[Rfam]
RNA: Alphaproteobacteria transfer-messenger RNA
RNA sequence: GCCCUUCCCUUCGCUGCAACUUCGCCUAUAUAGGGCGUUGCCGGCUACGGCCGGCUAUGGCGAUAAAUGAUACCGCGCUUCGGCGCAGCGGACCCGGGGGCAGUACCCGGCGGCUCCACCAGAAACCUCCGGAAACGGGGGCUCCUGACGGGGCCGAACCAGGAUCGACGUGCGGACGGACACGGUGUUUUUGCCCGGGCUGAGUAACCCGUUAAAGGCUCGAAACCACAAGUGCCAACGACAACGAGGCGCUCGCGAUUGCCGCGUAAUCACGGCCUAACGGCUUAGAUUACAAGGCUUGAACGCGGUUCGGGCCGCACCGGGCAACAGAAGCGGAUUCC
Numbered sequence: 001g002c003c004c005u006u007c008c009c010u011u012c013g014c015u016g017c018a019a020c021u022u023c024g025c026c027u028a029u030a031u032a033g034g035g036c037g038u039u040g041c042c043g044g045c046u047a048c049g050g051c052c053g054g055c056u057a058u059g060g061c062g063a064u065a066a067a068u069g070a071u072a073c074c075g076c077g078c079u080u081c082g083g084c085g086c087a088g089c090g091g092a093c094c095c096g097g098g099g100g101c102a103g104u105a106c107c108c109g110g111c112g113g114c115u116c117c118a119c120c121a122g123a124a125a126c127c128u129c130c131g132g133a134a135a136c137g138g139g140g141g142c143u144c145c146u147g148a149c150g151g152g153g154c155c156g157a158a159c160c161a162g163g164a165u166c167g168a169c170g171u172g173c174g175g176a177c178g179g180a181c182a183c184g185g186u187g188u189u190u191u192u193g194c195c196c197g198g199g200c201u202g203a204g205u206a207a208c209c210c211g212u213u214a215a216a217g218g219c220u221c222g223a224a225a226c227c228a229c230a231a232g233u234g235c236c237a238a239c240g241a242c243a244a245c246g247a248g249g250c251g252c253u254c255g256c257g258a259u260u261g262c263c264g265c266g267u268a269a270u271c272a273c274g275g276c277c278u279a280a281c282g283g284c285u286u287a288g289a290u291u292a293c294a295a296g297g298c299u300u301g302a303a304c305g306c307g308g309u310u311c312g313g314g315c316c317g318c319a320c321c322g323g324g325c326a327a328c329a330g331a332a333g334c335g336g337a338u339u340c341c
Base pairs, nucleotide, nucleotide: 040055041054042053043052044051059195060194061193062192063191069189070188071187072186073185074184075183084174085173086172088171089170090169094110095109096108097107098106111156112155113154114153115152116151117150196211197210198209199208201222202221203220306322307321308320309319312339313338315336316335